[Rfam]
RNA sequence: AGUCAAGAGUCUUUGGCAUCGUUUUGGUGAUCGAAUUUCUUUUGCCUUUUAAGAGGUGAACGAAAUG
Numbered sequence: 001a002g003u004c005a006a007g008a009g010u011c012u013u014u015g016g017c018a019u020c021g022u023u024u025u026g027g028u029g030a031u032c033g034a035a036u037u038u039c040u041u042u043u044g045c046c047u048u049u050u051a052a053g054a055g056g057u058g059a060a061c062g063a064a065a066u067g
Base pairs, nucleotide, nucleotide: 010063011062013060014059017058018057019056020055022054023053024052025051026050027049029047032044033043034042035041
RNA: S-element